Shown here is a 101-nucleotide RNA from Viviania marifolia, a member of the family "Plastid-rps12 3UTR RNA". Lineage of the source: Eukaryota > Streptophyta > Tracheophyta > Magnoliopsida > Viviania.

RNA sequence: GGUUUCCAUUGGUGCAAAUCCAAUCACCUCAAUUUUCAAUUUAAGAUGAUCAAAAUUCCCCAUUGGUAGUAAAUUAAAGGAUUAUCCAUUAAGCGGGGAAA
Numbered sequence: 001g002g003u004u005u006c007c008a009u010u011g012g013u014g015c016a017a018a019u020c021c022a023a024u025c026a027c028c029u030c031a032a033u034u035u036u037c038a039a040u041u042u043a044a045g046a047u048g049a050u051c052a053a054a055a056u057u058c059c060c061c062a063u064u065g066g067u068a069g070u071a072a073a074u075u076a077a078a079g080g081a082u083u084a085u086c087c088a089u090u091a092a093g094c095g096g097g098g099a100a101a
Stems, first nucleotide, its partner, number of pairs: 009023004058098004062089002065086006
The family has 1,299 seed sequences and 1,710 matches in Rfam 15.1. About the family: Plastid rpl20 is a non-coding RNA (ncRNA) recognised in plastids. It was found in the three prime untranslated region (3UTR) of rps12 gene, its 3UTR location sugest a role in transcript maduration. The family's RNA type in Rfam is cis-regulatory element. Rfam's curators put it in the seed alignment.